[Rfam]
RNA: tRNA
RNA sequence: UCCCCGAUAGUUCAGCCGGUAGAACACCUGACUGUUAAUCAGGGCGUCGUAGGUUCGAGUCCUACUCGGGGAG
Numbered sequence: 001u002c003c004c005c006g007a008u009a010g011u012u013c014a015g016c017c018g019g020u021a022g023a024a025c026a027c028c029u030g031a032c033u034g035u036u037a038a039u040c041a042g043g044g045c046g047u048c049g050u051a052g053g054u055u056c057g058a059g060u061c062c063u064a065c066u067c068g069g070g071g072a073g
Stems, first nucleotide, its partner, number of pairs: 001072007010025004027043005049065005